[Rfam]
RNA sequence: AUCAGAGUAGAAAAUAAAGCGUCAAGUGCUGGAAAGAUGGGAUGUUGCUUUCUGGACGAAGGAAUUCGCUUCCGCGGUUUUAUUUUCGCAUUCGCUGCA
Number, nucleotide and partner (000 for none) at each position: 001a000002u000003c097004a096005g095006a000007g000008u000009a000010g087011a086012a085013a084014a083015u082016a081017a080018a079019g078020c076021g075022u074023c000024a000025a000026g057027u056028g000029c055030u054031g053032g052033a051034a050035a049036g048037a000038u000039g000040g093041g092042a091043u090044g089045u000046u000047g000048c036049u035050u034051u033052c032053u031054g030055g029056a027057c026058g000059a000060a000061g073062g072063a071064a070065u000066u000067c000068g000069c000070u064071u063072c062073c061074g022075c021076g020077g000078u019079u018080u017081u016082a015083u014084u013085u012086u011087c010088g000089c044090a043091u042092u041093c040094g000095c005096u004097g003098c000099a000

The family of this 99-nucleotide sequence from Enterococcus italicus is "THF (Tetrahydrofolate) riboswitch aptamer". The base pairs follow the family's consensus structure, which is taken from published work. A search with the family's covariance model found it, with a score of 88 bits.